[Rfam]
RNA sequence: UUCCCUAUAGUUUUCUGAUGUUGAUCUCCGCAAUGAAAUCGCCAUCAGAACUUAACCCUAAGUAAUUG
Dot-bracket structure: ........(((...((((((......................)))))).)))................
Numbered sequence: 001u002u003c004c005c006u007a008u009a010g011u012u013u014u015c016u017g018a019u020g021u022u023g024a025u026c027u028c029c030g031c032a033a034u035g036a037a038a039u040c041g042c043c044a045u046c047a048g049a050a051c052u053u054a055a056c057c058c059u060a061a062g063u064a065a066u067u068g
Stems, first nucleotide, its partner, number of pairs: 009052003015048006

A member of the RNA family "Ascomycota telomerase RNA" from Cudoniella acicularis, 68 nucleotides of a longer RNA. Clan: Telomerase clan. Rfam classes the family as a non-coding RNA gene. Its family is annotated with telomere maintenance via telomerase, telomerase catalytic core complex and telomerase activity in the Gene Ontology. Taxonomically the source falls in Cudoniella (Eukaryota, Dikarya, Pezizomycotina, Helotiales).